Rfam assigns this 73-nucleotide RNA sequence from Bos taurus to the family "mir-2450 microRNA precursor family". Rfam links the family to the GO terms RISC complex and miRNA-mediated post-transcriptional gene silencing. It is one of the family's seed sequences.
[Rfam]
RNA sequence: AGAGGCGCGUGUGCCUUUUCUGCACACUUGGUAUAGACUCGCACACAUGGUCAGUAGAGGCGCAUGUGCCUUU
Numbered sequence: 001a002g003a004g005g006c007g008c009g010u011g012u013g014c015c016u017u018u019u020c021u022g023c024a025c026a027c028u029u030g031g032u033a034u035a036g037a038c039u040c041g042c043a044c045a046c047a048u049g050g051u052c053a054g055u056a057g058a059g060g061c062g063c064a065u066g067u068g069c070c071u072u073u
Base pairs, nucleotide, nucleotide: 002072003071004070005069006068007067008066009065010064011063012062013061014060015059016058017057018056020054021053022052025049026048029045030044031042032041